[Rfam]
Notes:
23S methyl RNA motif: a 99-nucleotide sequence from Streptococcus sp. DD13. Gene Ontology term of the family: regulation of gene expression. The family's consensus secondary structure is taken from published work. On this family, see Weinberg et al., Nucleic Acids Res 2007: "Identification of 22 candidate structured RNAs in bacteria using the CMfinder comparative genomics pipeline".
RNA sequence: AGUUCAUUUGUUUAAAUCAAACCUGUUGUGAUUUAAGUGAGUGAACGCCUGUUCACCAUGCUGUUUGCUGAGCUAGACUCCGGGCAGUGUGGAUUUUUU
Dot-bracket structure: .((((((((((((((((((.........)))))))))))))))))).........((((((((((((..(((.....))))))))))))))).......
It is annotated as a cis-regulatory element. The organism belongs to Streptococcus, within Bacteria.